The family of this 165-nucleotide sequence from Eptatretus burgeri is "U1 spliceosomal RNA". From the family's description: U1 is a small nuclear RNA (snRNA) component of the spliceosome (involved in pre-mRNA splicing). Its 5' end forms complementary base pairs with the 5' splice junction, thus defining the 5' donor site of an intron. There are significant differences in sequence and secondary structure between metazoan and yeast U1 snRNAs, the latter being much longer (568 nucleotides as compared to 164 nucleotides in human). Nevertheless, secondary structure predictions suggest that all U1 snRNAs share a 'common core' consisting of helices I, II, the proximal region of III, and IV. This family does not contain the larger yeast sequences. The base pairs follow the family's consensus structure, which is taken from published work.
Nucleotides: 165
Base pairs, nucleotide, nucleotide: 012131013130014129015128016053017052018051019050020049023047024046025045026044027043054099055098056097057096059095061092062091063090065088067086068084069083101126103124104122105121106120108118109117153162
Number, partner (000 for none) and nucleotide at each position: 001000a002000u003000a004000c005000u006000u007000a008000c009000c010000u011000c012131a013130u014129a015128g016053g017052a018051g019050a020049g021000a022000u023047a024046c025045c026044g027043c028000g029000a030000u031000c032000a033000g034000u035000u036000a037000g038000u039000u040000a041000a042000g043027g044026c045025g046024g047023u048000a049020u050019u051018c052017u053016c054099a055098g056097g057096g058000u059095g060000a061092g062091g063090c064000c065088u066000a067086c068084c069083c070000a071000u072000u073000a074000c075000a076000c077000u078000a079000c080000a081000g082000g083069g084068g085000g086067g087000a088065g089000g090063g091062u092061u093000g094000a095059c096057c097056c098055u099054u100000g101126c102000c103124a104122u105121u106120u107000c108118c109117c110000c111000a112000a113000a114000u115000g116000u117109g118108g119000g120106a121105a122104a123000g124103u125000c126101g127000c128015c129014u130013g131012u132000g133000a134000a135000a136000u137000u138000u139000g140000u141000a142000g143000g144000a145000u146000g147000c148000a149000g150000g151000a152000u153162g154000c155000g156000a157000u158000a159000g160000a161000c162153c163000g164000g165000c